[Rfam]
RNA: Small nucleolar RNA SNORA29
RNA sequence: AUUCCCAUUAUACUACCACUUUUUCAAUUAUAGAUUAAGUGGCUAUGCUUGUGGGAUAUAGAAAGACUUGCCACGGUCUGAAGGAAAAGGUUCACAGUAUCUUUUUCCUAUAUGGAGUUGGCAGAACAUAAGAUG
Numbered sequence: 001a002u003u004c005c006c007a008u009u010a011u012a013c014u015a016c017c018a019c020u021u022u023u024u025c026a027a028u029u030a031u032a033g034a035u036u037a038a039g040u041g042g043c044u045a046u047g048c049u050u051g052u053g054g055g056a057u058a059u060a061g062a063a064a065g066a067c068u069u070g071c072c073a074c075g076g077u078c079u080g081a082a083g084g085a086a087a088a089g090g091u092u093c094a095c096a097g098u099a100u101c102u103u104u105u106u107c108c109u110a111u112a113u114g115g116a117g118u119u120g121g122c123a124g125a126a127c128a129u130a131a132g133a134u135g
Stems, first nucleotide, its partner, number of pairs: 004055004016042004070122004088109003